[Rfam]
The record is a 78-nucleotide RNA from Denticeps clupeoides, which matches "Small nucleolar RNA SNORD74" in Rfam. It scores 61 bits against the family's covariance model. By type it is a C/D-box small nucleolar RNA. The family's consensus secondary structure was predicted with PFOLD. A reference for the family is Galardi et al. (2002), "Purified box C/D snoRNPs are able to reproduce site-specific 2'-O-methylation of target RNA in vitro", Mol Cell Biol. Rfam 15.1 lists 929 matches to the family in 615 species.
RNA sequence: GCGUGUAUGAUGAAAACAUAUGUUGGUAGGGACAUCUGAGUUACGCCUGAAGAAUGCCAACUUUUCUGAUCCAUACGC
Numbered sequence: 001g002c003g004u005g006u007a008u009g010a011u012g013a014a015a016a017c018a019u020a021u022g023u024u025g026g027u028a029g030g031g032a033c034a035u036c037u038g039a040g041u042u043a044c045g046c047c048u049g050a051a052g053a054a055u056g057c058c059a060a061c062u063u064u065u066c067u068g069a070u071c072c073a074u075a076c077g078c
Stems, first nucleotide, its partner, number of pairs: 001078005
Dot-bracket structure: (((((....................................................................)))))